Rfam assigns this 104-nucleotide RNA from Rheinheimera sp. D18 to the family "Vibrio RNA AS9".
The organism belongs to Rheinheimera, within Bacteria.
Rfam describes the family as follows. Identified by direct cloning an parallel sequencing experiments with 5S/tRNA depletion. Confirmed by Northern blot.
The base pairs follow the family's consensus structure, which was predicted with RNAfold.
For this family Rfam cites "Experimental discovery of sRNAs in Vibrio cholerae by direct cloning, 5S/tRNA depletion and parallel sequencing" (Liu et al., Nucleic Acids Res, 2009).
RNA sequence: CUGAGCACAACGCUUUUUAGUGAGCGUUAAACAAAUUAAACCACGGCCAUGAGUGGCCAUAAAAUUGAUUGCCUCUGGCGUAACAUACUCUGCCGCCAUGACCA
Numbered sequence: 001c002u003g004a005g006c007a008c009a010a011c012g013c014u015u016u017u018u019a020g021u022g023a024g025c026g027u028u029a030a031a032c033a034a035a036u037u038a039a040a041c042c043a044c045g046g047c048c049a050u051g052a053g054u055g056g057c058c059a060u061a062a063a064a065u066u067g068a069u070u071g072c073c074u075c076u077g078g079c080g081u082a083a084c085a086u087a088c089u090c091u092g093c094c095g096c097c098a099u100g101a102c103c104a
Base pairs, nucleotide, nucleotide: 003058006055007054008053009028010027011026012025013024014023015022035050036049041045066104067103069101070100071096072095075092077090078088080086